[Rfam]
RNA sequence: UGUCUCCUCCACCCUCCCAAAGGAUGGAUUCACCCGCUCCCCGUGAGCGGGUUUUUUUU
Numbered sequence: 001u002g003u004c005u006c007c008u009c010c011a012c013c014c015u016c017c018c019a020a021a022g023g024a025u026g027g028a029u030u031c032a033c034c035c036g037c038u039c040c041c042c043g044u045g046a047g048c049g050g051g052u053u054u055u056u057u058u059u
Stems, first nucleotide, its partner, number of pairs: 008028004013023003032052008
Source information: The family of this 59-nucleotide RNA sequence from Noviherbaspirillum pedocola is "Betaproteobacteria toxic small RNA". Rfam's curators write: Overexpression in amino aid rich medium attenuates growth, suggesting role in repressing amino acid intake and metabolism. The literature on the family includes a 2012 paper in Genome Res by Kimelman et al., "A vast collection of microbial genes that are toxic to bacteria". NCBI's taxonomy places the organism under Bacteria, Pseudomonadati, Burkholderiales, Oxalobacteraceae, Noviherbaspirillum.